The record is a 141-nucleotide RNA from Halobacteroides halobius, which matches "PyrR binding site" in Rfam. Rfam 15.1 lists 1,498 matches to the family in 930 species. The family's RNA type in Rfam is cis-regulatory element. Rfam describes the family as follows. This family represents the PyrR binding site and terminator structure. This RNA structure is found upstream of a variety of genes involved in pyrimidine biosynthesis and transport. The alignment also includes a portion of the antiterminator structure. NCBI's taxonomy places the organism under Bacteria, Bacillota, Clostridia, Halanaerobiales, Halobacteroides halobius.

RNA sequence: GAAUCCUUUAAAUUAGUCCAGAGAGGCUAACAAGGGUAGCGUAGUUUAAUAAUGAAUAUUUUUAGCUCUUAGUAUAUCUAGAGCUUACUAUAUAAAUUAUGACUUCCCUUGUCAGUCGUUGCUGGCAGGGGAAGUCUUAUU
Numbered sequence: 001g002a003a004u005c006c007u008u009u010a011a012a013u014u015a016g017u018c019c020a021g022a023g024a025g026g027c028u029a030a031c032a033a034g035g036g037u038a039g040c041g042u043a044g045u046u047u048a049a050u051a052a053u054g055a056a057u058a059u060u061u062u063u064a065g066c067u068c069u070u071a072g073u074a075u076a077u078c079u080a081g082a083g084c085u086u087a088c089u090a091u092a093u094a095a096a097u098u099a100u101g102a103c104u105u106c107c108c109u110u111g112u113c114a115g116u117c118g119u120u121g122c123u124g125g126c127a128g129g130g131g132a133a134g135u136c137u138u139a140u141u
Stems, first nucleotide, its partner, number of pairs: 003037006013030006056093004062087001064085006101136016